[Rfam]
RNA sequence: GAUCCGCUACCGGGCGGAUCACAGGACACCGGCGGAGCCUUCCGCAGCCGAGUUCAGCGGCCUGGUGUCCGCCACCGCUCCAUCGGAGCAGGGCAUAUUCGCCCCAUGUGGCAGCGUACUGACC
Numbered sequence: 001g002a003u004c005c006g007c008u009a010c011c012g013g014g015c016g017g018a019u020c021a022c023a024g025g026a027c028a029c030c031g032g033c034g035g036a037g038c039c040u041u042c043c044g045c046a047g048c049c050g051a052g053u054u055c056a057g058c059g060g061c062c063u064g065g066u067g068u069c070c071g072c073c074a075c076c077g078c079u080c081c082a083u084c085g086g087a088g089c090a091g092g093g094c095a096u097a098u099u100c101g102c103c104c105c106a107u108g109u110g111g112c113a114g115c116g117u118a119c120u121g122a123c124c
Base pairs, nucleotide, nucleotide: 001020002019003018004017005016006015007014008013024070025069026068027067028066029065030064031063032045033044034043035042036041047061048060049059050058071112072111073110074109075108077089078088079087080086091104092103093102094101
RNA: xerDC RNA